[Rfam]
Nucleotides: 300
Base pairs, nucleotide, nucleotide: 003063004062006060010056011055015051016050020048021047024044025043028040029039065255066254067253068252069251070250071249072248076243078241079240083236084235085234087232088231089230092228093227096109097108098107116218117217118216119215120214121213122207123206124205125204126203127200128199129198130197132194133193134192135191136190137189141187142186143185146181147180148179155173156172157171158170159169160168161167257292258291259290260289261288262287263286264285265284266283267282269280270279271278
Number, partner (000 for none) and nucleotide at each position: 001000a002000c003063g004062g005000a006060a007000g008000a009000a010056c011055g012000g013000a014000a015051g016050g017000c018000c019000a020048a021047g022000g023000u024044c025043g026000a027000g028040c029039c030000g031000g032000a033000a034000g035000a036000g037000a038000a039029g040028g041000a042000c043025c044024g045000a046000c047021c048020u049000c050016c051015c052000g053000a054000c055011c056010g057000c058000g059000a060006u061000u062004c063003c064000c065255a066254g067253c068252a069251c070250g071249g072248a073000g074000a075000u076243c077000a078241g079240g080000c081000a082000c083236c084235c085234a086000c087232g088231c089230g090000g091000a092228g093227c094000g095000c096109g097108c098107c099000g100000c101000g102000a103000c104000a105000a106000g107098g108097g109096c110000a111000g112000a113000a114000g115000c116218g117217u118216u119215g120214u121213g122207g123206g124205c125204c126203u127200g128199c129198g130197u131000g132194a133193u134192u135191c136190g137189g138000g139000u140000c141187u142186u143185u144000g145000c146181u147180g148179g149000c150000g151000a152000a153000a154000a155173c156172c157171c158170u159169g160168c161167a162000c163000g164000g165000g166000u167161u168160g169159c170158g171157g172156g173155g174000a175000u176000u177000a178000a179148c180147c181146a182000a183000c184000g185143a186142a187141g188000g189137u190136c191135g192134g193133a194132u195000u196000g197130a198129c199128g200127c201000c202000g203126a204125g205124g206123c207122c208000a209000a210000c211000c212000a213121c214120a215119c216118a217117a218116c219000c220000c221000a222000c223000c224000u225000u226000a227093g228092c229000a230089c231088g232087c233000u234085u235084g236083g237000u238000a239000a240079c241078c242000g243076g244000a245000u246000a247000u248072u249071c250070c251069g252068u253067g254066c255065u256000a257292g258291c259290g260289g261288g262287c263286g264285g265284c266283g267282a268000a269280g270279u271278c272000g273000u274000u275000u276000a277000c278271g279270a280269c281000a282267u283266c284265g285264c286263c287262g288261c289260c290259c291258g292257c293000u294000u295000u296000u297000a298000c299000g300000u

Rfam assigns this 300-nucleotide RNA from Antrihabitans stalagmiti to the family "Mycobacterium smegmatis small RNA 1". From the family's description: Mycobacterium smegmatis small RNA 1 is highly expressed during stationary phase of growth. Ms1 RNA directly interacts with RNA polymerase (RNAP), but in a different way than 6S, which is present in other bacteria. Ms1 does not require the presence of the main sigma factor for RNAP interaction. There is evidence that Ms1 RNA may function similar to 6S RNA in M. smegmatis which does not have 6S RNA. The literature on the family includes a 2014 paper in Nucleic Acids Res by Hnilicova et al., "Ms1, a novel sRNA interacting with the RNA polymerase core in mycobacteria".